[Rfam]
RNA sequence: AUUCCGAAAUCGCUGAGUCCCUUUCAUAAGGGAACGGGGGAACCAAUCGUGGUUUAUCAAAGAAGCCGCAUGGGGUGAAUCUCGAAUGAUCGAGUAGGGUGACUCUUACAUCCGAAUCCGUCAGCUAACCUCGUAAGCGUAUCAAGAGAGGCAAC
Numbered sequence: 001a002u003u004c005c006g007a008a009a010u011c012g013c014u015g016a017g018u019c020c021c022u023u024u025c026a027u028a029a030g031g032g033a034a035c036g037g038g039g040g041a042a043c044c045a046a047u048c049g050u051g052g053u054u055u056a057u058c059a060a061a062g063a064a065g066c067c068g069c070a071u072g073g074g075g076u077g078a079a080u081c082u083c084g085a086a087u088g089a090u091c092g093a094g095u096a097g098g099g100u101g102a103c104u105c106u107u108a109c110a111u112c113c114g115a116a117u118c119c120g121u122c123a124g125c126u127a128a129c130c131u132c133g134u135a136a137g138c139g140u141a142u143c144a145a146g147a148g149a150g151g152c153a154a155c
Stems, first nucleotide, its partner, number of pairs: 011139004018033005034134006044072002073119003081094004097113004
RNA: c-di-AMP riboswitch aptamer (ydaO/yuaA leader)
Organism: Aneurinibacillus danicus